[Rfam]
RNA: Guanidine-II riboswitch aptamer (mini-ykkC)
RNA sequence: GACCGAGGACGACCUCCCCACCAUGGGUGAUCAUUCGGGACGACCCGA
Numbered sequence: 001g002a003c004c005g006a007g008g009a010c011g012a013c014c015u016c017c018c019c020a021c022c023a024u025g026g027g028u029g030a031u032c033a034u035u036c037g038g039g040a041c042g043a044c045c046c047g048a
Base pairs, nucleotide, nucleotide: 001018005016006015007014008013035048036047037046038045039044